[Rfam]
RNA sequence: CUGGUGCCGGUUCACGACGAGGCCAAUCCCGCCACGCCGACCCGGCGCC
Number, nucleotide and partner (000 for none) at each position: 001c000002u000003g049004g048005u047006g000007c045008c044009g043010g042011u000012u000013c000014a000015c039016g038017a000018c036019g035020a000021g033022g032023c031024c000025a000026a000027u000028c000029c000030c000031g023032c022033c021034a000035c019036g018037c000038c016039g015040a000041c000042c010043c009044g008045g007046c000047g005048c004049c003